[Rfam]
This 72-nucleotide RNA sequence from Solanum tuberosum belongs to the Rfam family "Small nucleolar RNA Z105". NCBI's taxonomy places the organism under Eukaryota, Spermatophyta, Magnoliopsida, Solanoideae, Solanum. The family's RNA type in Rfam is C/D-box small nucleolar RNA. Pairs were carried over by alignment from the consensus structure, which was predicted with CMfinder. On this family, see Chen et al., Nucleic Acids Res 2003: "The high diversity of snoRNAs in plants: identification and comparative study of 120 snoRNA genes from Oryza sativa".

RNA sequence: CGAGCAUAAUGAUGAUUCAAAAUAUUUUCCGAUUUGUUCAUGAAAGGAAUACCAACCUCCUACUCAUUCUGA
Numbered sequence: 001c002g003a004g005c006a007u008a009a010u011g012a013u014g015a016u017u018c019a020a021a022a023u024a025u026u027u028u029c030c031g032a033u034u035u036g037u038u039c040a041u042g043a044a045a046g047g048a049a050u051a052c053c054a055a056c057c058u059c060c061u062a063c064u065c066a067u068u069c070u071g072a
Stems, first nucleotide, its partner, number of pairs: 006067002009064001028048002